[Rfam]
RNA sequence: AGAUGAGAGAAACACCCCGCUCGCAGGGGACUGCGGGCGGUUCCAGGUCGAGGCACCCCCCGCCCCGCCCUGGUCGUGCCGUCGCGCACACCACCGGAGCUUCGGGCUCCGGAACUCCUCACCGAUCGGA
Numbered sequence: 001a002g003a004u005g006a007g008a009g010a011a012a013c014a015c016c017c018c019g020c021u022c023g024c025a026g027g028g029g030a031c032u033g034c035g036g037g038c039g040g041u042u043c044c045a046g047g048u049c050g051a052g053g054c055a056c057c058c059c060c061c062g063c064c065c066c067g068c069c070c071u072g073g074u075c076g077u078g079c080c081g082u083c084g085c086g087c088a089c090a091c092c093a094c095c096g097g098a099g100c101u102u103c104g105g106g107c108u109c110c111g112g113a114a115c116u117c118c119u120c121a122c123c124g125a126u127c128g129g130a
Base pairs, nucleotide, nucleotide: 004121005120006119007118009117010116017040018039019038020037021036022035023034024033025032026031043073044072045071046070047069049067050066052064053063054062076089077088078087079086094112095111096110097109098108099107100106101105122129123128
Description: A member of the RNA family "Streptomyces RNA 5676" from Streptomyces sp. ISL-96, 130 nucleotides long. From the family's description: Identified by deep sequencing of transcriptome at the end of exponential growth phase. For this family Rfam cites "Deep sequencing-based identification of small non-coding RNAs in Streptomyces coelicolor" (Vockenhuber et al., RNA Biol, 2011).